A member of the RNA family "Lysine riboswitch aptamer" from an Erysipelotrichia bacterium, 148 nucleotides long.
For this family Rfam cites "Riboswitches Control Fundamental Biochemical Pathways in Bacillus subtilis and Other Bacteria" (Mandal et al., Cell, 2003).
It scores 70 bits against the family's covariance model.
[Rfam]
RNA sequence: CCUUAACAAAGAGGCCGCGAUGCAUCAUUAGCAUUCCUGUGAGGGAUCAUCGCCGAAGUAAAUCUAUUGAUUUACUGGGCUCAUGUUGAACAAACAUGGGACUGUUGAUAAGAUGUGCCCAACAUCUUGUCAAUGCGCUUUGUUAGCG
Numbered sequence: 001c002c003u004u005a006a007c008a009a010a011g012a013g014g015c016c017g018c019g020a021u022g023c024a025u026c027a028u029u030a031g032c033a034u035u036c037c038u039g040u041g042a043g044g045g046a047u048c049a050u051c052g053c054c055g056a057a058g059u060a061a062a063u064c065u066a067u068u069g070a071u072u073u074a075c076u077g078g079g080c081u082c083a084u085g086u087u088g089a090a091c092a093a094a095c096a097u098g099g100g101a102c103u104g105u106u107g108a109u110a111a112g113a114u115g116u117g118c119c120c121a122a123c124a125u126c127u128u129g130u131c132a133a134u135g136c137g138c139u140u141u142g143u144u145a146g147c148g
Stems, first nucleotide, its partner, number of pairs: 006143006017053006024047003057076008077103002080100008105133010
Dot-bracket structure: .....((((((.....((((((.(((..................)))))))))...((((((((....))))))))((.((((((((.....)))))))).)).((((((((((.........))))))))))....)))))).....